[Rfam]
Overview
The family of this 132-nucleotide RNA sequence from Dipodomys ordii is "Small nucleolar RNA SNORA63". Pairs were carried over by alignment from the consensus structure, which was predicted with PFOLD. E3 belongs to the H/ACA class of snoRNAs and is involved in the processing of eukaryotic pre-rRNA and has regions of complementarity to 18S rRNA. E3 is encoded in introns in the gene for protein synthesis initiation factor 4AII. The family's RNA type in Rfam is H/ACA-box small nucleolar RNA. A reference for the family is Mishra and Eliceiri (1997), "Three small nucleolar RNAs that are involved in ribosomal RNA precursor processing", Proc Natl Acad Sci U S A. NCBI's taxonomy places the organism under Eukaryota, Chordata, Tetrapoda, Dipodomyinae, Dipodomys. The match comes from Rfam's covariance-model search (121 bits). The family has 8 seed sequences and 1,279 matches in Rfam 15.1.
RNA sequence: CAGCAGGAUUGAGACUACAAUGUAGCUGUUAGGAACUGCGUUGUUGUUUGCCCUGCUCAGAUUAAAGUUGUUUCUUAACUAUACCUGUCUGCUGUACUCCUGUAGCAGCCAGGGAUGCUUUGUCUCAUACAU
Dot-bracket structure: ..(((((.........(((((((((..........))))))))).......)))))...........................((((.((((............)))).))))...................